The family of this 112-nucleotide RNA sequence from Phreatobacter cathodiphilus is "Rhizobiales sRNA Atu_At1". The family has 33 seed sequences and 200 matches in Rfam 15.1.

RNA sequence: CCCUGCCGGGUGACAACCGGCCAUAACGGGGACGAUGGACGCGGAUGAUUUUGCCGGUUUCUGUCCGCGGCAGCAACGCAUAGGCAUGCGUGGCAUCUAACCCGUUCCCGGC
Number, nucleotide and partner (000 for none) at each position: 001c000002c000003c000004u000005g000006c111007c110008g109009g108010g000011u023012g022013a000014c020015a000016a000017c000018c000019g000020g014021c000022c012023a011024u000025a106026a105027c104028g103029g102030g101031g000032a000033c000034g097035a096036u095037g094038g000039a000040c069041g068042c067043g066044g065045a064046u063047g000048a000049u000050u000051u000052u000053g000054c000055c000056g000057g000058u000059u000060u000061c000062u000063g046064u045065c044066c043067g042068c041069g040070g085071c084072a000073g000074c083075a000076a000077c000078g000079c000080a000081u000082a000083g074084g071085c070086a000087u000088g000089c000090g000091u000092g000093g000094c037095a036096u035097c034098u000099a000100a000101c030102c029103c028104g027105u026106u025107c000108c009109c008110g007111g006112c000
On this family, see Wilms et al., RNA Biol 2012: "Deep sequencing uncovers numerous small RNAs on all four replicons of the plant pathogen Agrobacterium tumefaciens". Taxonomically the source falls in Phreatobacter (Bacteria, Pseudomonadati, Pseudomonadota, Alphaproteobacteria).